[Rfam]
RNA sequence: UAAUUUCAUAGGCAAACUGCUUGAAAAAGCAGGACGCAAAACUAGAGGGGCUUCCUCUUAUUUGAGAAGCUAGCCAGUUGCAUUC
Numbered sequence: 001u002a003a004u005u006u007c008a009u010a011g012g013c014a015a016a017c018u019g020c021u022u023g024a025a026a027a028a029g030c031a032g033g034a035c036g037c038a039a040a041a042c043u044a045g046a047g048g049g050g051c052u053u054c055c056u057c058u059u060a061u062u063u064g065a066g067a068a069g070c071u072a073g074c075c076a077g078u079u080g081c082a083u084u085c
Stems, first nucleotide, its partner, number of pairs: 012037002017032006040079004047075002049071003056065002

A member of the RNA family "c-di-GMP-I riboswitch aptamer" from Bacillus sp. cl95, 85 nucleotides long.
A search with the family's covariance model found it, with a score of 62 bits.
Pairs were carried over by alignment from the consensus structure, which is taken from published work.
NCBI's taxonomy places the organism under Bacteria, Bacilli, Caryophanales, Bacillaceae, Bacillus.